A member of the RNA family "Small nucleolar RNA SNORD109A" from Erinaceus europaeus, 73 nucleotides long. For this family Rfam cites "The IC-SNURF-SNRPN transcript serves as a host for multiple small nucleolar RNA species and as an antisense RNA for UBE3A" (Runte et al., Hum Mol Genet, 2001). The family has 7 seed sequences and 412 matches in Rfam 15.1. Rfam describes the family as follows. Humans have two copies of the SNORD109 gene, SNORD109A and SNORD109B. NCBI's taxonomy places the organism under Eukaryota, Eumetazoa, Teleostomi, Mammalia, Erinaceus. Gene Ontology terms of the family: RNA processing and nucleolus.
RNA sequence: GGAUCGAUGAUGAGAAAACUGUCUGAGGAUGCUGAGAGACAAAACAAGCACUGCAGAUGUCAAUCUGAGGUCC
Dot-bracket structure: (((((...............................................................)))))